[Rfam]
RNA sequence: GACAUUAUAUAACGUUCACUUUUUUACUUUCUUUUUUAUUCCACCCAUCUCGGGAGGCGGAGUUUCGGUGUAAAAACGAAAGUGAAAAUUCCAAAGCCUCCCACUAGGGAGGCUUUUUUGUA
Dot-bracket structure: ....................(((((((((((.((.((((....((......))..((.(...).))...)))).)).)))))))))))....((((((((((....))))))))))......
Notes:
The record is a 122-nucleotide RNA from Shewanella sediminis, which matches "Phenylalanine leader peptide" in Rfam. On this family, see Zurawski et al., Proc Natl Acad Sci U S A 1978: "Nucleotide sequence of the leader region of the phenylalanine operon of Escherichia coli". The organism belongs to Shewanella sediminis, within Bacteria.